[Rfam]
RNA: Small nucleolar RNA SNORD90
RNA sequence: UAAUUCCCUUUCUUGUGUCUUAUGAUGAAGCUUCAUAGGGCAGAUUCUGAGCUGAGAAAUAAAAUUUCUCUCCGCUGAUACUCUCUAUAUGCCGUCUGAAGACACUACAUAUUGU
Dot-bracket structure: ............(.((((((.........((..(((.(((..(..((.(.(..(((((.......)))))..).).)))..)))....)))..))....)))))).)........